[Rfam]
RNA sequence: AGAGAACUGCUGUGUUGGUGACAGCCUUUCUCUAGUGCUCUGAUCUGACUCUCUUUCGACAUGGGGUGACUGUCGUGCUGGUGCCGUAAACCGGUCUCGUAACCGGAAACGAAUCCUCUCGAAAUCUUUCGCCCCUUCUGGUAACUCCAGGUCGACCACAGAUUGGCGCACGGCAUGGUGGUUCAACC
Dot-bracket structure: ...((((((((((((..((................((.(.((((((................(((.(((..(...(.(.((....((...(((((......)))))..)).......)).).)..)..))).))).............))))))).))...........)).))))))))))))....
Rfam assigns this 188-nucleotide RNA sequence from Synechococcus sp. CC9311 to the family "6S / SsrS RNA".
The base pairs follow the family's consensus structure, which is taken from published work.
It is one of the family's seed sequences.
Rfam 15.1 lists 5,006 matches to the family in 4,638 species.